[Rfam]
RNA sequence: ACCGCAGGCCGCCUUAUCGCUGUUUCAGCAAUGAAACGGAGGAAAGUCCGGGCACCAUAGGGCAGCAUAGCGGGUAACGCCCGUCACGUCAGAGCAAUUUGAUGGAGGACAAGUGCAACAGAAAGCAAGUACAGUUCGGCUGUAGUGAAACCAGGUAAACUCUAUGCGGUGAAAUGCCAAGUAUACCGUCAGUUAAGGGCGGCUCGUCCGUUGACGGAGGGUAGGCAGAUAGAACCGUACGGCAACGUUCGGUCCAGAUAAAUGAUAAGGGCUCGUGAGAGUACAGAACCCGGCUUACAGGCCUGCUUUUUUU
Numbered sequence: 001a002c003c004g005c006a007g008g009c010c011g012c013c014u015u016a017u018c019g020c021u022g023u024u025u026c027a028g029c030a031a032u033g034a035a036a037c038g039g040a041g042g043a044a045a046g047u048c049c050g051g052g053c054a055c056c057a058u059a060g061g062g063c064a065g066c067a068u069a070g071c072g073g074g075u076a077a078c079g080c081c082c083g084u085c086a087c088g089u090c091a092g093a094g095c096a097a098u099u100u101g102a103u104g105g106a107g108g109a110c111a112a113g114u115g116c117a118a119c120a121g122a123a124a125g126c127a128a129g130u131a132c133a134g135u136u137c138g139g140c141u142g143u144a145g146u147g148a149a150a151c152c153a154g155g156u157a158a159a160c161u162c163u164a165u166g167c168g169g170u171g172a173a174a175u176g177c178c179a180a181g182u183a184u185a186c187c188g189u190c191a192g193u194u195a196a197g198g199g200c201g202g203c204u205c206g207u208c209c210g211u212u213g214a215c216g217g218a219g220g221g222u223a224g225g226c227a228g229a230u231a232g233a234a235c236c237g238u239a240c241g242g243c244a245a246c247g248u249u250c251g252g253u254c255c256a257g258a259u260a261a262a263u264g265a266u267a268a269g270g271g272c273u274c275g276u277g278a279g280a281g282u283a284c285a286g287a288a289c290c291c292g293g294c295u296u297a298c299a300g301g302c303c304u305g306c307u308u309u310u311u312u313u
Base pairs, nucleotide, nucleotide: 001309004306005305006304007303008302009301010300011298012270013269014268015267016266017265018264020039021038022037023036024035025034026033027032044296045295046294048293049292050291051290052289053171054170055169056168060205061204062203063202065167066166067165068164069163070084071083072082073081074080085107087104088103089102090101091100092099093098108162109161113160114159115156116155130144131143132142133141134140135139175227176226177225178224186217187216188215189214190213197209198208199207200206234253235252236251237250239248240247241246
A member of the RNA family "Bacterial RNase P class A" from Flavobacterium silvaticum, 313 nucleotides long.